Rfam assigns this 199-nucleotide RNA sequence to the family "RT-16 RNA".
RNA sequence: CUAGCGUAUUAUUUGGAAGGUUUCUCUACCCAGAGAAAACUAAUGAAGGAUGGUACCUGGACUACACGCUUAUCCAUAAUACAGCUUUGCUGUAAUAAAAUACAAUAGCAAUAAUUAGUAACGCUAAAAGGUGUGUGGGAAGCCCUUUUGUGAAAAUUAGAGUUAUGGUGGAUAAAUAAUUAUGGGUAAGCUAGCUGGU
Numbered sequence: 001c002u003a004g005c006g007u008a009u010u011a012u013u014u015g016g017a018a019g020g021u022u023u024c025u026c027u028a029c030c031c032a033g034a035g036a037a038a039a040c041u042a043a044u045g046a047a048g049g050a051u052g053g054u055a056c057c058u059g060g061a062c063u064a065c066a067c068g069c070u071u072a073u074c075c076a077u078a079a080u081a082c083a084g085c086u087u088u089g090c091u092g093u094a095a096u097a098a099a100a101u102a103c104a105a106u107a108g109c110a111a112u113a114a115u116u117a118g119u120a121a122c123g124c125u126a127a128a129a130g131g132u133g134u135g136u137g138g139g140a141a142g143c144c145c146u147u148u149u150g151u152g153a154a155a156a157u158u159a160g161a162g163u164u165a166u167g168g169u170g171g172a173u174a175a176a177u178a179a180u181u182a183u184g185g186g187u188a189a190g191c192u193a194g195c196u197g198g199u
Base pairs, nucleotide, nucleotide: 001060002059003058004057006056007055008054009053010052011051012050013049014048068191069190070189071188072187073186074185075184076183077182105166106165107164108163109162112159113158114157115156116155121151122150